Shown here is a 335-nucleotide sequence from Microvirga subterranea, a member of the family "Alphaproteobacteria transfer-messenger RNA". For this family Rfam cites "Phylogenetic analysis of tmRNA secondary structure" (Williams and Bartel, RNA, 1996).
RNA sequence: GGACUGGCGCGGGGGAGCGUGAUUGCCUAUAUGAGGAGUGUCGGGUUUUGCCCGGCUAUGAUCGUAGAGGCCUAGUGGCAUAGGCGUUCAGGACGCGGGUUCAAUUCCCGCCGCCUCCACCACGAGCCGAUCGGGCGCACUUUGCUGGGUCGGCUUCUGGAGGGGGCGACUUGGGUUCGACUGGGCGCAGUAAGGACUGGGCUGCGAUUAGGCUGAGCUACGGCCUUGAUAGUGCACAUUCACAAAUGCCAACGACAACGUUGACAUGGGUGCGGUUCGCCUCGCGGCGUAACCAUCCGGGGCUCGGGAAAGCCUAGCAACAGAAACGGCACCCU
Numbered sequence: 001g002g003a004c005u006g007g008c009g010c011g012g013g014g015g016a017g018c019g020u021g022a023u024u025g026c027c028u029a030u031a032u033g034a035g036g037a038g039u040g041u042c043g044g045g046u047u048u049u050g051c052c053c054g055g056c057u058a059u060g061a062u063c064g065u066a067g068a069g070g071c072c073u074a075g076u077g078g079c080a081u082a083g084g085c086g087u088u089c090a091g092g093a094c095g096c097g098g099g100u101u102c103a104a105u106u107c108c109c110g111c112c113g114c115c116u117c118c119a120c121c122a123c124g125a126g127c128c129g130a131u132c133g134g135g136c137g138c139a140c141u142u143u144g145c146u147g148g149g150u151c152g153g154c155u156u157c158u159g160g161a162g163g164g165g166g167c168g169a170c171u172u173g174g175g176u177u178c179g180a181c182u183g184g185g186c187g188c189a190g191u192a193a194g195g196a197c198u199g200g201g202c203u204g205c206g207a208u209u210a211g212g213c214u215g216a217g218c219u220a221c222g223g224c225c226u227u228g229a230u231a232g233u234g235c236a237c238a239u240u241c242a243c244a245a246a247u248g249c250c251a252a253c254g255a256c257a258a259c260g261u262u263g264a265c266a267u268g269g270g271u272g273c274g275g276u277u278c279g280c281c282u283c284g285c286g287g288c289g290u291a292a293c294c295a296u297c298c299g300g301g302g303c304u305c306g307g308g309a310a311a312g313c314c315u316a317g318c319a320a321c322a323g324a325a326a327c328g329g330c331a332c333c334c335u
Base pairs, nucleotide, nucleotide: 040056041055042054043053044052060209061208062207063206064205070202071201072200073199074198075197076196085187086186087185089183090182091181095111096110097109098108099107112168113167114166115165116164117163118162211224213222300315301314302313303312306332308330

A search with the family's covariance model found it, with a score of 148 bits. Its Rfam clan is "tRNA clan". By type it is a non-coding RNA gene.